RNA sequence: CGAGUAAGCGAGGUGGUUGCAGGUUGCGAUCGCAACUUGAGGAAAGUCCGGGCUUCCGAAAGACCAAGCUUGCUGGGUAAUGCCCAGUGCGGGCGACCGUGAGGAUAGUGCCACAGAAACAUACCGCCGAUGGAACAGGUCAAGAGUCAAGGUUCAUUCCUGCUUGCGACGGUUCCAGGUAAGGGUGCAAGGGUGCGGUAAGAGCGUACCAGCAGCAUCGAGAGGUGCUGGCUCGGUAAACCCCGGCUGGAAGCAAGGCUGUAGGAACUAGGGUUGGUCUUUUUCCCGUUCCGGCAAAAGGUAACUUUUGUGCGACCGCUAGAGGUGUCUGGUAACAGGCAUUCGAGAUAGAUAACCGCCCUCCAAUCGGAGAACAGAACCCGGCUUAUGUCUUACUCGCCCC
Numbered sequence: 001c002g003a004g005u006a007a008g009c010g011a012g013g014u015g016g017u018u019g020c021a022g023g024u025u026g027c028g029a030u031c032g033c034a035a036c037u038u039g040a041g042g043a044a045a046g047u048c049c050g051g052g053c054u055u056c057c058g059a060a061a062g063a064c065c066a067a068g069c070u071u072g073c074u075g076g077g078u079a080a081u082g083c084c085c086a087g088u089g090c091g092g093g094c095g096a097c098c099g100u101g102a103g104g105a106u107a108g109u110g111c112c113a114c115a116g117a118a119a120c121a122u123a124c125c126g127c128c129g130a131u132g133g134a135a136c137a138g139g140u141c142a143a144g145a146g147u148c149a150a151g152g153u154u155c156a157u158u159c160c161u162g163c164u165u166g167c168g169a170c171g172g173u174u175c176c177a178g179g180u181a182a183g184g185g186u187g188c189a190a191g192g193g194u195g196c197g198g199u200a201a202g203a204g205c206g207u208a209c210c211a212g213c214a215g216c217a218u219c220g221a222g223a224g225g226u227g228c229u230g231g232c233u234c235g236g237u238a239a240a241c242c243c244c245g246g247c248u249g250g251a252a253g254c255a256a257g258g259c260u261g262u263a264g265g266a267a268c269u270a271g272g273g274u275u276g277g278u279c280u281u282u283u284u285c286c287c288g289u290u291c292c293g294g295c296a297a298a299a300g301g302u303a304a305c306u307u308u309u310g311u312g313c314g315a316c317c318g319c320u321a322g323a324g325g326u327g328u329c330u331g332g333u334a335a336c337a338g339g340c341a342u343u344c345g346a347g348a349u350a351g352a353u354a355a356c357c358g359c360c361c362u363c364c365a366a367u368c369g370g371a372g373a374a375c376a377g378a379a380c381c382c383g384g385c386u387u388a389u390g391u392c393u394u395a396c397u398c399g400c401c402c403c
Stems, first nucleotide, its partner, number of pairs: 001399008011389001012360007020039008044387003048384005053253004062292001067248003071245002073087005088102001089100004103243002108241002110237003124184002126180003131177006192210006212232001213230007257317002260314001265307002269303002283297002286294002324343008
Bacterial RNase P class A: a 403-nucleotide RNA sequence from Leptolyngbyaceae cyanobacterium M33_DOE_097. It is annotated as a ribozyme. A search with the family's covariance model found it, with a score of 243 bits. The organism belongs to Leptolyngbyaceae, within Bacteria.